[Rfam]
RNA sequence: GAACACUUCGAGCAAGGCCGCUUGCACCACAAAGCGGGACGCCGGCCCUCUCUGUCACCCGUCCGGGUGACCGGCUUGCGGGGGAGAGAUACGGAACGUUACGUUCACCGCGACAACCGCAGACAGAGACGGCCCCCGGCCGGGAGGGCAAUCCCGAUCGAGGGCCUGACCGAUCAGGAAGCAAGCCCUUCCCA
Numbered sequence: 001g002a003a004c005a006c007u008u009c010g011a012g013c014a015a016g017g018c019c020g021c022u023u024g025c026a027c028c029a030c031a032a033a034g035c036g037g038g039a040c041g042c043c044g045g046c047c048c049u050c051u052c053u054g055u056c057a058c059c060c061g062u063c064c065g066g067g068u069g070a071c072c073g074g075c076u077u078g079c080g081g082g083g084g085a086g087a088g089a090u091a092c093g094g095a096a097c098g099u100u101a102c103g104u105u106c107a108c109c110g111c112g113a114c115a116a117c118c119g120c121a122g123a124c125a126g127a128g129a130c131g132g133c134c135c136c137c138g139g140c141c142g143g144g145a146g147g148g149c150a151a152u153c154c155c156g157a158u159c160g161a162g163g164g165c166c167u168g169a170c171c172g173a174u175c176a177g178g179a180a181g182c183a184a185g186c187c188c189u190u191c192c193c194a
Stems, first nucleotide, its partner, number of pairs: 055070006080109002083106002131166005137160002142155004177192005
Dot-bracket structure: ......................................................((((((....)))))).........((.((....................)).)).....................(((((.((...((((......))))...)).)))))..........(((((......)))))..